The record is a 92-nucleotide RNA from Sagittarius serpentarius, which matches "Small nucleolar SNORD12/SNORD106" in Rfam. The source organism's lineage runs through Eukaryota, Eumetazoa, Dipnotetrapodomorpha, Tetrapoda and Sagittarius. The family's consensus secondary structure was predicted with RNAalifold. A search with the family's covariance model found it, with a score of 74 bits. The family has 8 seed sequences and 2,264 matches in Rfam 15.1. Clan: SNORD12 clan.
[Rfam]
RNA sequence: GGUGUUAUAAGUGAUGACUGAGGUUUUUUCCCCAUCAGAGCGACAGUGUUGAUUUCUCACUGUUCAAGCCAGAUCAUGUCUGAUGUACCAGC
Numbered sequence: 001g002g003u004g005u006u007a008u009a010a011g012u013g014a015u016g017a018c019u020g021a022g023g024u025u026u027u028u029u030c031c032c033c034a035u036c037a038g039a040g041c042g043a044c045a046g047u048g049u050u051g052a053u054u055u056c057u058c059a060c061u062g063u064u065c066a067a068g069c070c071a072g073a074u075c076a077u078g079u080c081u082g083a084u085g086u087a088c089c090a091g092c
Base pairs, nucleotide, nucleotide: 001092003090004089006087007086008085009084
Dot-bracket structure: (.((.((((..........................................................................)))).)).)